[Rfam]
RNA sequence: AUAUAAGACAAAUUCACUUUUUAGGUUCAUCCAUUUAAUGAUGUAUGUGGUGCAUAUUAUGAACCACAUACAUCAUUAAAUGAAUGAACCUAAAAAAUGAAUUUUGCUUAUAU
Numbered sequence: 001a002u003a004u005a006a007g008a009c010a011a012a013u014u015c016a017c018u019u020u021u022u023a024g025g026u027u028c029a030u031c032c033a034u035u036u037a038a039u040g041a042u043g044u045a046u047g048u049g050g051u052g053c054a055u056a057u058u059a060u061g062a063a064c065c066a067c068a069u070a071c072a073u074c075a076u077u078a079a080a081u082g083a084a085u086g087a088a089c090c091u092a093a094a095a096a097a098u099g100a101a102u103u104u105u106g107c108u109u110a111u112a113u
Stems, first nucleotide, its partner, number of pairs: 002112006010104002014100003018096007026088005032082012048066004